[Rfam]
RNA sequence: UAGAAUAACGUAGGUAAGGGAAGUCGGCAAAUUGGAUCCGUAACUUCGGAAUAAGGAUUGGCUCUGAGGACCGGGGCGUGUCGGGCUCGGCCGAGAAGUGAAUGUUGUCGGUGUUGCAUCUGGUGAUGCACUCGCUCCUCCACGGGGGUGAGUGUAGAUACCAGAGCCGCGACCUGCACGUUUGCAGAUCUUCCGUGCUGUAGAACUGUCGACUGCGCGAUACGCACUGUUGAUACAGCUCUCGUCGGCCGCCGUGAAACGGUCAGCUCAGAACUGGCACGGACAAGGGGAAUCCGACUGUCUAAUUAAAACAAAGCAUUGCGAUGGCCCUCGCGGGUGUUGACGCAAUGUGAUUUCUGCCCAGUGCUCUGAAUGUCAACGUGAAGAAAUUCAAGCAAGCGCGGGUAAACGGCAAGAGUAACUAUGACUCUUCAAAGGUAGCCAAAUGCCUCGUCAUCUAAUUAGUGACGCGCAUGAAUGGAUUAACGAGAUUCCCACUGUCCCUAUCUACUAUCUAGCGAAACCACAGCCAAGGGAACGGGCUUGGGA
Numbered sequence: 001u002a003g004a005a006u007a008a009c010g011u012a013g014g015u016a017a018g019g020g021a022a023g024u025c026g027g028c029a030a031a032u033u034g035g036a037u038c039c040g041u042a043a044c045u046u047c048g049g050a051a052u053a054a055g056g057a058u059u060g061g062c063u064c065u066g067a068g069g070a071c072c073g074g075g076g077c078g079u080g081u082c083g084g085g086c087u088c089g090g091c092c093g094a095g096a097a098g099u100g101a102a103u104g105u106u107g108u109c110g111g112u113g114u115u116g117c118a119u120c121u122g123g124u125g126a127u128g129c130a131c132u133c134g135c136u137c138c139u140c141c142a143c144g145g146g147g148g149u150g151a152g153u154g155u156a157g158a159u160a161c162c163a164g165a166g167c168c169g170c171g172a173c174c175u176g177c178a179c180g181u182u183u184g185c186a187g188a189u190c191u192u193c194c195g196u197g198c199u200g201u202a203g204a205a206c207u208g209u210c211g212a213c214u215g216c217g218c219g220a221u222a223c224g225c226a227c228u229g230u231u232g233a234u235a236c237a238g239c240u241c242u243c244g245u246c247g248g249c250c251g252c253c254g255u256g257a258a259a260c261g262g263u264c265a266g267c268u269c270a271g272a273a274c275u276g277g278c279a280c281g282g283a284c285a286a287g288g289g290g291a292a293u294c295c296g297a298c299u300g301u302c303u304a305a306u307u308a309a310a311a312c313a314a315a316g317c318a319u320u321g322c323g324a325u326g327g328c329c330c331u332c333g334c335g336g337g338u339g340u341u342g343a344c345g346c347a348a349u350g351u352g353a354u355u356u357c358u359g360c361c362c363a364g365u366g367c368u369c370u371g372a373a374u375g376u377c378a379a380c381g382u383g384a385a386g387a388a389a390u391u392c393a394a395g396c397a398a399g400c401g402c403g404g405g406u407a408a409a410c411g412g413c414a415a416g417a418g419u420a421a422c423u424a425u426g427a428c429u430c431u432u433c434a435a436a437g438g439u440a441g442c443c444a445a446a447u448g449c450c451u452c453g454u455c456a457u458c459u460a461a462u463u464a465g466u467g468a469c470g471c472g473c474a475u476g477a478a479u480g481g482a483u484u485a486a487c488g489a490g491a492u493u494c495c496c497a498c499u500g501u502c503c504c505u506a507u508c509u510a511c512u513a514u515c516u517a518g519c520g521a522a523a524c525c526a527c528a529g530c531c532a533a534g535g536g537a538a539c540g541g542g543c544u545u546g547g548g549a
Base pairs, nucleotide, nucleotide: 001517002516003515004514010511011510012509013508014507015506016505018503019502020501035059036058037057038056039055044049060275061274063272064271065270066269067268068267276280288496289495290494291493292492293491294490295488296487299313300312301311316351317350318349319348320347321346322345323344324341327338328337329336330335355482356481357480359413360412361411364410365409366406367405369404370403371402374401375400376399382393383392384391385390414432415431416430417429418428419427433437453469454468455467456466457465530547531546532545533544534543